[Rfam]
RNA sequence: GCUGGGAUGAUCCUUGGUGGUCCGAGGUGUAGGCUUCAAACCUAUGGCUGAAUGACUUCGGAGCGAUUCAAUUCCACCCUCCUGGC
Numbered sequence: 001g002c003u004g005g006g007a008u009g010a011u012c013c014u015u016g017g018u019g020g021u022c023c024g025a026g027g028u029g030u031a032g033g034c035u036u037c038a039a040a041c042c043u044a045u046g047g048c049u050g051a052a053u054g055a056c057u058u059c060g061g062a063g064c065g066a067u068u069c070a071a072u073u074c075c076a077c078c079c080u081c082c083u084g085g086c
Base pairs, nucleotide, nucleotide: 001086002085003084004083005082006081007080009078012027013026014025015024016023017022028046029045030044031043032042033041048061049060050059051058052057063077065075
Notes
Selenocysteine transfer RNA: an 86-nucleotide RNA sequence from Taenia asiatica. Clan: tRNA clan. Pairs were carried over by alignment from the consensus structure, which is taken from published work.